[Rfam]
RNA: msiK RNA
RNA sequence: GGCUGUCGUCUCUUCACGACGGAUCGUCCGGCACGUACCUGCCGGUAAGAGAGGAAAAA
Numbered sequence: 001g002g003c004u005g006u007c008g009u010c011u012c013u014u015c016a017c018g019a020c021g022g023a024u025c026g027u028c029c030g031g032c033a034c035g036u037a038c039c040u041g042c043c044g045g046u047a048a049g050a051g052a053g054g055a056a057a058a059a
Stems, first nucleotide, its partner, number of pairs: 010051005016046001028045006